Background:
The family of this 100-nucleotide RNA sequence from Vibrio nereis is "Purine riboswitch aptamer". Pairs were carried over by alignment from the consensus structure, which is taken from published work. Rfam links the family to the GO term purine nucleobase biosynthetic process.

RNA sequence: UCCGCGCAAACGAUUAAAUGCUGUAUAUCUCUAGUGAUUUGGACUAGAAGUCUCUACCACCGAGCCUAUCUUGGUGACUACAGUUUUUCGGUGUAGCCUA
Numbered sequence: 001u002c003c004g005c006g007c008a009a010a011c012g013a014u015u016a017a018a019u020g021c022u023g024u025a026u027a028u029c030u031c032u033a034g035u036g037a038u039u040u041g042g043a044c045u046a047g048a049a050g051u052c053u054c055u056a057c058c059a060c061c062g063a064g065c066c067u068a069u070c071u072u073g074g075u076g077a078c079u080a081c082a083g084u085u086u087u088u089c090g091g092u093g094u095a096g097c098c099u100a
Stems, first nucleotide, its partner, number of pairs: 018086001020084006030048006058076007